[Rfam]
RNA sequence: CGAUGGUGGACUUUUUGGGGACGGAUGUCUGGGUCGCACAUUUCUGAGUCAGUGAUGUGGCAAGUGACUCAAACCCCUGCCCCCUGGGU
Numbered sequence: 001c002g003a004u005g006g007u008g009g010a011c012u013u014u015u016u017g018g019g020g021a022c023g024g025a026u027g028u029c030u031g032g033g034u035c036g037c038a039c040a041u042u043u044c045u046g047a048g049u050c051a052g053u054g055a056u057g058u059g060g061c062a063a064g065u066g067a068c069u070c071a072a073a074c075c076c077c078u079g080c081c082c083c084c085u086g087g088g089u
Base pairs, nucleotide, nucleotide: 004086006084008083009082018078019077020076027068028067029066030064033061034060035059036058037057038056
NoRC associated RNA, pRNA: an 89-nucleotide RNA from Callithrix jacchus. Rfam 15.1 lists 354 matches to the family in 128 species. Its family is annotated with chromatin remodeling in the Gene Ontology. Lineage of the source: Eukaryota > Mammalia > Haplorrhini > Cebidae > Callithrix.